Shown here is a 94-nucleotide sequence from Facklamia miroungae, a member of the family "THF (Tetrahydrofolate) riboswitch aptamer".
Lineage of the source: Bacteria > Bacillati > Bacillota > Lactobacillales > Facklamia.
RNA sequence: AACAGAGUAUAAAAGGUGCGUAAAGUAUUUACAGAUGGGAAGUUGCUGUAAAACGAAAUGAACGGUCAUGCGAUGCCUUUUAUCUUCCGCUGUU
Numbered sequence: 001a002a003c004a005g006a007g008u009a010u011a012a013a014a015g016g017u018g019c020g021u022a023a024a025g026u027a028u029u030u031a032c033a034g035a036u037g038g039g040a041a042g043u044u045g046c047u048g049u050a051a052a053a054c055g056a057a058a059u060g061a062a063c064g065g066u067c068a069u070g071c072g073a074u075g076c077c078u079u080u081u082a083u084c085u086u087c088c089g090c091u092g093u094u
Stems, first nucleotide, its partner, number of pairs: 001094005010082009019072003025054002028052007038088005058069004
Dot-bracket structure: (((((....((((((((((((...((.(((((((...[[[[[...)))))))))...((((....))))))).))))))))).]]]]].)))))
Notes:
Gene Ontology term of the family: tetrahydrofolate metabolic process. The family's consensus secondary structure is taken from published work. The match comes from Rfam's covariance-model search (71 bits). A reference for the family is Ames et al. (2010), "A eubacterial riboswitch class that senses the coenzyme tetrahydrofolate", Chem Biol.